[Rfam]
RNA: c-di-AMP riboswitch aptamer (ydaO/yuaA leader)
Organism: Bacillaceae bacterium SAS-127
RNA sequence: GCAUCUAUUUUGCUUAGUUCCUAUUUUUUCAGGAAGCGGGGGAACCAACCGUGGCUCAUCAGUCACAUGGGGUGAAUCUCAAAAUAUUGAGUAGGACACUCUCAAGUCCGAAUCCGUCAGCUAACCUCGUAAGCGCAUUGAGAGAGGCAAC
Numbered sequence: 001g002c003a004u005c006u007a008u009u010u011u012g013c014u015u016a017g018u019u020c021c022u023a024u025u026u027u028u029u030c031a032g033g034a035a036g037c038g039g040g041g042g043a044a045c046c047a048a049c050c051g052u053g054g055c056u057c058a059u060c061a062g063u064c065a066c067a068u069g070g071g072g073u074g075a076a077u078c079u080c081a082a083a084a085u086a087u088u089g090a091g092u093a094g095g096a097c098a099c100u101c102u103c104a105a106g107u108c109c110g111a112a113u114c115c116g117u118c119a120g121c122u123a124a125c126c127u128c129g130u131a132a133g134c135g136c137a138u139u140g141a142g143a144g145a146g147g148c149a150a151c
Stems, first nucleotide, its partner, number of pairs: 011135004018035005036130006046069002070115003078091004094109004
Dot-bracket structure: ..........((((...(((((........)))))((((((....((....................))(((.....((((......))))..((((........))))...))).........)))))).))))................